[Rfam]
RNA sequence: AUAGGGUUAAGAGAUAGCCUCUCCUAGGCUUUGUCUGUAUAUCUUAUUGGACAUAGUCUAACUGAGGUUAACUCUAGCCCUUUUU
Numbered sequence: 001a002u003a004g005g006g007u008u009a010a011g012a013g014a015u016a017g018c019c020u021c022u023c024c025u026a027g028g029c030u031u032u033g034u035c036u037g038u039a040u041a042u043c044u045u046a047u048u049g050g051a052c053a054u055a056g057u058c059u060a061a062c063u064g065a066g067g068u069u070a071a072c073u074c075u076a077g078c079c080c081u082u083u084u085u
Base pairs, nucleotide, nucleotide: 012073013072015070016069017068018067019066020065027058028057029056030055032053033052034051035050036049
A member of the RNA family "mir-282 microRNA precursor family" from Brassicogethes aeneus, 85 nucleotides long. Lineage of the source: Eukaryota > Eumetazoa > Ecdysozoa > Endopterygota > Brassicogethes. Rfam links the family to the GO terms RISC complex and miRNA-mediated post-transcriptional gene silencing.